[Rfam]
RNA sequence: AGUAGUAGAAGCAUAGAACGGUGAGAAUCCGUUCCGCCGAAAGGGCUAGGUUUCCUCGGCAAUGUUCGUCAGCCGAGGGUUAGUCGGUCCUAAGAUGUGCCGUAAUCCGAGCAUGUCAACAGGGAAACAGGUUAAUAUUCCUGUACCAAUCAGAUAUCGUUUCUUCGGAAACCCCGACGCUUCGGGAUAUACCACGCGGAACUGUCGUUUCCGUUCAAGCGUUCAACGCGGUGGAGUACCGUCAUGGUGAGAAACCGCAGAAGACGUGAUGAGGUAACGUGGUCGACUCCUGGAGCCCGUGAAAAGGGAUCUGAUUGACCGUACUGAGAACCGACACAGGUGCCCCUGGUUGAAAAGACCAAGGCGUAU
Dot-bracket structure: ...............((((((.......))))))((((....((((..((...((((((...((.....)).))))))......(((.((...((((((.((.....))..))))))....))...(((((........)))))..((((((((..................(((...(((((((((...((((.(((((.........)))))....((((.....(((((.....(((.....))).....))))).....)))).....(....).))))....))))))))).........))).)))))))).)))..)).....((......)).)))).((((.......)))).))))...
Numbered sequence: 001a002g003u004a005g006u007a008g009a010a011g012c013a014u015a016g017a018a019c020g021g022u023g024a025g026a027a028u029c030c031g032u033u034c035c036g037c038c039g040a041a042a043g044g045g046c047u048a049g050g051u052u053u054c055c056u057c058g059g060c061a062a063u064g065u066u067c068g069u070c071a072g073c074c075g076a077g078g079g080u081u082a083g084u085c086g087g088u089c090c091u092a093a094g095a096u097g098u099g100c101c102g103u104a105a106u107c108c109g110a111g112c113a114u115g116u117c118a119a120c121a122g123g124g125a126a127a128c129a130g131g132u133u134a135a136u137a138u139u140c141c142u143g144u145a146c147c148a149a150u151c152a153g154a155u156a157u158c159g160u161u162u163c164u165u166c167g168g169a170a171a172c173c174c175c176g177a178c179g180c181u182u183c184g185g186g187a188u189a190u191a192c193c194a195c196g197c198g199g200a201a202c203u204g205u206c207g208u209u210u211c212c213g214u215u216c217a218a219g220c221g222u223u224c225a226a227c228g229c230g231g232u233g234g235a236g237u238a239c240c241g242u243c244a245u246g247g248u249g250a251g252a253a254a255c256c257g258c259a260g261a262a263g264a265c266g267u268g269a270u271g272a273g274g275u276a277a278c279g280u281g282g283u284c285g286a287c288u289c290c291u292g293g294a295g296c297c298c299g300u301g302a303a304a305a306g307g308g309a310u311c312u313g314a315u316u317g318a319c320c321g322u323a324c325u326g327a328g329a330a331c332c333g334a335c336a337c338a339g340g341u342g343c344c345c346c347u348g349g350u351u352g353a354a355a356a357g358a359c360c361a362a363g364g365c366g367u368a369u
Stems, first nucleotide, its partner, number of pairs: 016034006035366004043345004049325002054078006063071002085321003089123002094117006101109002127144005147317008173308003179296009191283004196214005219267004228258005238248003273278001331340002347361004

The family of this 369-nucleotide part of an RNA from Methanocalculus chunghsingensis is "Archaeal large subunit ribosomal RNA". The source organism's lineage runs through Archaea, Methanomicrobia, Methanomicrobiales, Methanocalculaceae and Methanocalculus. The match comes from Rfam's covariance-model search (2900 bits). Rfam links the family to the GO terms structural constituent of ribosome and ribosome.